[Rfam]
Description:
SAM riboswitch aptamer (S box leader): a 101-nucleotide RNA from Chloroflexi bacterium AL-W.
RNA sequence: AACUCAUCCAGAGGGGCAGAGGGACCGACCCAACGAAGCCCCGGCAACCCCUUUUUAUUGGGAAGGUGCUAACUCCGGCAGCGUAAGCUGAAAGAUGGGCG
Numbered sequence: 001a002a003c004u005c006a007u008c009c010a011g012a013g014g015g016g017c018a019g020a021g022g023g024a025c026c027g028a029c030c031c032a033a034c035g036a037a038g039c040c041c042c043g044g045c046a047a048c049c050c051c052u053u054u055u056u057a058u059u060g061g062g063a064a065g066g067u068g069c070u071a072a073c074u075c076c077g078g079c080a081g082c083g084u085a086a087g088c089u090g091a092a093a094g095a096u097g098g099g100c101g
Stems, first nucleotide, its partner, number of pairs: 003099006013042005021031003025078003043070004048066002050062003074093001079090004